[Rfam]
RNA: Archaeal small subunit ribosomal RNA, nucleotides 1 to 500
RNA sequence: AUUCCGGUUGAUCCUGCCGGAGGCCAUUGCUAUCGGUGUCCGAUUUAGCCAUGCGAGUUGUACGUUUACCGUAGCAAACUGCUCAGUAACACGUGGCCAAACUGCCCUAUGGACCGGAAUAACCUCGGGAAACUGAGGCUAAUUCCGGAUACCACAUUCAUCCUGGAAUUGGAGAAUGUGCGAAAUGCUCCGGCGCCAUAGGAUGUGGCUGCGGCCGAUUAGGUAGACGGUGGGGUAACGGCCCACCGUGCCGAUAAUCGGUACGGGUCAUGAGAGUGAGAGCCCGGAGACGGACUCUGAGACACGAGUCCGGGCCCUACGGGGCGCAGCAGGCGCGAAACCUUUACACUGCACGACAGUGCGAUAGGGGGACACCGAGUCCGAGGGCAUAGAGCCCUCGCUUUUCUGAACCGUAAGGAGGUUCAGGAACAAGGGCUGGGCAAGACCGGUGCCAGCCGCCGCGGUAACACCGGCAGCCCAAGUGAUGGCCGAUAUUAUUG
Numbered sequence: 001a002u003u004c005c006g007g008u009u010g011a012u013c014c015u016g017c018c019g020g021a022g023g024c025c026a027u028u029g030c031u032a033u034c035g036g037u038g039u040c041c042g043a044u045u046u047a048g049c050c051a052u053g054c055g056a057g058u059u060g061u062a063c064g065u066u067u068a069c070c071g072u073a074g075c076a077a078a079c080u081g082c083u084c085a086g087u088a089a090c091a092c093g094u095g096g097c098c099a100a101a102c103u104g105c106c107c108u109a110u111g112g113a114c115c116g117g118a119a120u121a122a123c124c125u126c127g128g129g130a131a132a133c134u135g136a137g138g139c140u141a142a143u144u145c146c147g148g149a150u151a152c153c154a155c156a157u158u159c160a161u162c163c164u165g166g167a168a169u170u171g172g173a174g175a176a177u178g179u180g181c182g183a184a185a186u187g188c189u190c191c192g193g194c195g196c197c198a199u200a201g202g203a204u205g206u207g208g209c210u211g212c213g214g215c216c217g218a219u220u221a222g223g224u225a226g227a228c229g230g231u232g233g234g235g236u237a238a239c240g241g242c243c244c245a246c247c248g249u250g251c252c253g254a255u256a257a258u259c260g261g262u263a264c265g266g267g268u269c270a271u272g273a274g275a276g277u278g279a280g281a282g283c284c285c286g287g288a289g290a291c292g293g294a295c296u297c298u299g300a301g302a303c304a305c306g307a308g309u310c311c312g313g314g315c316c317c318u319a320c321g322g323g324g325c326g327c328a329g330c331a332g333g334c335g336c337g338a339a340a341c342c343u344u345u346a347c348a349c350u351g352c353a354c355g356a357c358a359g360u361g362c363g364a365u366a367g368g369g370g371g372a373c374a375c376c377g378a379g380u381c382c383g384a385g386g387g388c389a390u391a392g393a394g395c396c397c398u399c400g401c402u403u404u405u406c407u408g409a410a411c412c413g414u415a416a417g418g419a420g421g422u423u424c425a426g427g428a429a430c431a432a433g434g435g436c437u438g439g440g441c442a443a444g445a446c447c448g449g450u451g452c453c454a455g456c457c458g459c460c461g462c463g464g465u466a467a468c469a470c471c472g473g474c475a476g477c478c479c480a481a482g483u484g485a486u487g488g489c490c491g492a493u494a495u496u497a498u499u500g
Base pairs, nucleotide, nucleotide: 004020005019006018007017008016022490023489024488025487026486027485028484029483030482031481033378034377035376036375037374038373039372040371041370042336048334049333050332052331053330054329057075058074059073062072063071064070082289083288084287092213093212094211095210096209097208098207101206102205106202107201108200109199110198111197112196114148115147116146117145123138124137125136126135127134128133153180154179155178156177157176158175159174162172163171187194188193215261216260217259222252223251224250227249228248229247230246231245232244233243234242264286265285266284267283268279269278270277271276291312292311293310294309295308296307314325315324316323317322342368344367345366346365350363351362352361353360354359382400383399384398385397386396387395388394406426407425408424409423410422411421412420433479434478435477436476437475438474446473447472448471449470455462456461